[Rfam]
mir-9193 microRNA precursor family: a 74-nucleotide sequence from Pipistrellus kuhlii. Lineage of the source: Eukaryota > Chordata > Sarcopterygii > Eutheria > Pipistrellus. The base pairs follow the family's consensus structure, which was predicted with RNAalifold.

RNA sequence: ACUGGAAGGGUGGAGUCCCUCAGCCUGGAUUUCAAGAGGGUGCAGGCCAGGUUGAGGGACCCCAUGGGUGCAUA
Numbered sequence: 001a002c003u004g005g006a007a008g009g010g011u012g013g014a015g016u017c018c019c020u021c022a023g024c025c026u027g028g029a030u031u032u033c034a035a036g037a038g039g040g041u042g043c044a045g046g047c048c049a050g051g052u053u054g055a056g057g058g059a060c061c062c063c064a065u066g067g068g069u070g071c072a073u074a
Stems, first nucleotide, its partner, number of pairs: 003072002006069001010065001012063002015060011027048002030045002033042002
Dot-bracket structure: ..((.(...(.((.(((((((((((.((.((.((......)).)).)).))))))))))).)).)...).))..